The record is a 385-nucleotide RNA from Pontibacillus halophilus, which matches "Bacterial RNase P class B" in Rfam.
NCBI's taxonomy places the organism under Bacteria, Bacilli, Caryophanales, Pontibacillus, Pontibacillus halophilus.
The family's RNA type in Rfam is ribozyme.
RNA sequence: AUGCUUGGGUAAUCGCUUUGUGCGUUUCGCACAGAGAGGAAAGUCCAUGCUCGCACAGACUGAGACGUCUGUAGUGUUCGUGCUUGACGAAACCAUAAGUCAGGGGAGCAUGUUACAUGCUUACGGCAAGGAAAAUGCCUAAGUCCUCUUUAGGAUAAGGCAUGACUACUUUGAAAGUGCCACAGUGACGAAGUUCAAUCGGAAACGAUUGAAGUGGAACGAGGUAAACCCCACGAGCGAGCAACCCAAAAUUAGGUAGGGGCACUUCCCUGAGGGAACUGAACUGAAGGGGAAGACAAGCAAUGCUUGUAGAUAGAUGAUUACCACCGGAGUACGAGGUUGACCGCCGUUUGCAGUACAAAGGUACAGAACAUGGCUUACAAAG
Numbered sequence: 001a002u003g004c005u006u007g008g009g010u011a012a013u014c015g016c017u018u019u020g021u022g023c024g025u026u027u028c029g030c031a032c033a034g035a036g037a038g039g040a041a042a043g044u045c046c047a048u049g050c051u052c053g054c055a056c057a058g059a060c061u062g063a064g065a066c067g068u069c070u071g072u073a074g075u076g077u078u079c080g081u082g083c084u085u086g087a088c089g090a091a092a093c094c095a096u097a098a099g100u101c102a103g104g105g106g107a108g109c110a111u112g113u114u115a116c117a118u119g120c121u122u123a124c125g126g127c128a129a130g131g132a133a134a135a136u137g138c139c140u141a142a143g144u145c146c147u148c149u150u151u152a153g154g155a156u157a158a159g160g161c162a163u164g165a166c167u168a169c170u171u172u173g174a175a176a177g178u179g180c181c182a183c184a185g186u187g188a189c190g191a192a193g194u195u196c197a198a199u200c201g202g203a204a205a206c207g208a209u210u211g212a213a214g215u216g217g218a219a220c221g222a223g224g225u226a227a228a229c230c231c232c233a234c235g236a237g238c239g240a241g242c243a244a245c246c247c248a249a250a251a252u253u254a255g256g257u258a259g260g261g262g263c264a265c266u267u268c269c270c271u272g273a274g275g276g277a278a279c280u281g282a283a284c285u286g287a288a289g290g291g292g293a294a295g296a297c298a299a300g301c302a303a304u305g306c307u308u309g310u311a312g313a314u315a316g317a318u319g320a321u322u323a324c325c326a327c328c329g330g331a332g333u334a335c336g337a338g339g340u341u342g343a344c345c346g347c348c349g350u351u352u353g354c355a356g357u358a359c360a361a362a363g364g365u366a367c368a369g370a371a372c373a374u375g376g377c378u379u380a381c382a383a384a385g
Stems, first nucleotide, its partner, number of pairs: 004385003007381001008325007016036006041379003045376005050241005055072006078236005083104006105124001106122006125231002128171003136162004143156005177229002179225003194213008245261003265295007296310006327364002332359004
Clan: RNaseP clan. A search with the family's covariance model found it, with a score of 337 bits.